Rfam assigns this 105-nucleotide RNA from Ureibacillus manganicus to the family "SAM riboswitch aptamer (S box leader)". Taxonomically the source falls in Ureibacillus manganicus (Bacteria, Bacillota, Bacilli, Ureibacillus).

RNA sequence: CUCUUAUAAAGAGAGGCGGAGGGAAGUGCCCUAUGAAGCCCGGCAACCAUCACAUUUGUGGAAAGGUGCCAAAUCACUCAAAGUUUUAACUUUGACAGAUAAGAG
Numbered sequence: 001c002u003c004u005u006a007u008a009a010a011g012a013g014a015g016g017c018g019g020a021g022g023g024a025a026g027u028g029c030c031c032u033a034u035g036a037a038g039c040c041c042g043g044c045a046a047c048c049a050u051c052a053c054a055u056u057u058g059u060g061g062a063a064a065g066g067u068g069c070c071a072a073a074u075c076a077c078u079c080a081a082a083g084u085u086u087u088a089a090c091u092u093u094g095a096c097a098g099a100u101a102a103g104a105g
Base pairs, nucleotide, nucleotide: 001105002104003103004102005101006100007099013041015040016039017038021031022030023029025078026077027076028075042070043069044068045067047066048065050061051060052059074097079094080093081092082091083090084089
A search with the family's covariance model found it, with a score of 87 bits.
Rfam describes the family as follows. The SAM riboswitch is found upstream of a number of genes which code for proteins involved in methionine or cysteine biosynthesis in Gram-positive bacteria. The SAM riboswitch acts at the level of transcription termination control. The predicted structure consists of a complex stem-loop region followed by a single stem loop terminator region. An alternative and mutually exclusive form involves bases in the 3' segment of helix 1 with those in the 5' region of helix 5 to form a structure termed the anti-terminator form. This entry represents the conserved core of the complex structure involving helices 1-4.
The base pairs follow the family's consensus structure, which is taken from published work.